[Rfam]
The record is a 125-nucleotide RNA from Oryctolagus cuniculus, which matches "Small nucleolar RNA SNORA28" in Rfam. It scores 74 bits against the family's covariance model. About the family: ACA28 is a member of the H/ACA class of snoRNA that guide the sites of modification of uridines to pseudouridines. Its family is annotated with RNA processing and nucleolus in the Gene Ontology. On this family, see Huttenhofer et al., EMBO J 2001: "RNomics: an experimental approach that identifies 201 candidates for novel, small, non-messenger RNAs in mouse".
RNA sequence: AAGCAACACUGUGGCAGACUGUCAAAACCAUCUGAUGCAAUCUGCACUUGCUAUAGCAAGGAAGUCUAACCUACUCUGGUAUUCUCUCUUCUGUGAGACUAGCUGUUACUUAAGACAGCGUUAAA
Numbered sequence: 001a002a003g004c005a006a007c008a009c010u011g012u013g014g015c016a017g018a019c020u021g022u023c024a025a026a027a028c029c030a031u032c033u034g035a036u037g038c039a040a041u042c043u044g045c046a047c048u049u050g051c052u053a054u055a056g057c058a059a060g061g062a063a064g065u066c067u068a069a070c071c072u073a074c075u076c077u078g079g080u081a082u083u084c085u086c087u088c089u090u091c092u093g094u095g096a097g098a099c100u101a102g103c104u105g106u107u108a109c110u111u112a113a114g115a116c117a118g119c120g121u122u123a124a125a
Base pairs, nucleotide, nucleotide: 009044010039011038012037013036015034016033017032018031064116065115066114067113068111077105078104079103080102085098086097087096088095